[Rfam]
RNA sequence: GCAACUCAUCAAGAGAAGGGCUGGCGCCCUCGCCAACCUGCUUUCCGGGCAAGGUGGUUUCCGCAAACGGGGAUGCGGCUGGCUCGUGUUACAUACGUUGUCAGCAACCAAGCGGUACGUU
Numbered sequence: 001g002c003a004a005c006u007c008a009u010c011a012a013g014a015g016a017a018g019g020g021c022u023g024g025c026g027c028c029c030u031c032g033c034c035a036a037c038c039u040g041c042u043u044u045c046c047g048g049g050c051a052a053g054g055u056g057g058u059u060u061c062c063g064c065a066a067a068c069g070g071g072g073a074u075g076c077g078g079c080u081g082g083c084u085c086g087u088g089u090u091a092c093a094u095a096c097g098u099u100g101u102c103a104g105c106a107a108c109c110a111a112g113c114g115g116u117a118c119g120u121u
Base pairs, nucleotide, nucleotide: 007075008074009073010072015031017030018029019028020027021026032058033057034056037054038053039052040050041049042048044117046115078105079104080103081102082101083100
RNA: SAM-I/IV (S-adenosyl methionine) riboswitch aptamer